About this RNA:
This 92-nucleotide RNA from Setaria italica belongs to the Rfam family "Small nucleolar RNA R44/J54/Z268 family". The family has 29 seed sequences and 1,168 matches in Rfam 15.1. Its Rfam clan is "SNORD74 clan". Pairs were carried over by alignment from the consensus structure, which was predicted with PFOLD. It is annotated as a C/D-box small nucleolar RNA. The match comes from Rfam's covariance-model search (80 bits).
[Rfam]
RNA sequence: GGAGCAGGUGAUGAGAACAAGACAGGGACAUCAGAACCCUCUUUUUGGGCAUGAUAGACUGAAGUCUUCAAUGGGAAUCUCUCUGAUGCUUU
Numbered sequence: 001g002g003a004g005c006a007g008g009u010g011a012u013g014a015g016a017a018c019a020a021g022a023c024a025g026g027g028a029c030a031u032c033a034g035a036a037c038c039c040u041c042u043u044u045u046u047g048g049g050c051a052u053g054a055u056a057g058a059c060u061g062a063a064g065u066c067u068u069c070a071a072u073g074g075g076a077a078u079c080u081c082u083c084u085g086a087u088g089c090u091u092u
Stems, first nucleotide, its partner, number of pairs: 002091005